[Rfam]
RNA: Small nucleolar RNA snoR100
RNA sequence: UAAUGAAGGCAGCAUGGUUAUGUGCACGGAAAUUGAAUCCUCAGAGUCGUCAUGUCUGCUCCCUCUGAUCCCUCUUUACAGGGUUUAAUGAUUUGGGGGCCUGGAUUAGACUCACAUUU
Numbered sequence: 001u002a003a004u005g006a007a008g009g010c011a012g013c014a015u016g017g018u019u020a021u022g023u024g025c026a027c028g029g030a031a032a033u034u035g036a037a038u039c040c041u042c043a044g045a046g047u048c049g050u051c052a053u054g055u056c057u058g059c060u061c062c063c064u065c066u067g068a069u070c071c072c073u074c075u076u077u078a079c080a081g082g083g084u085u086u087a088a089u090g091a092u093u094u095g096g097g098g099g100c101c102u103g104g105a106u107u108a109g110a111c112u113c114a115c116a117u118u119u
Base pairs, nucleotide, nucleotide: 012025013024014023015022043102044101046100047099048098054092055091056090058084059083060082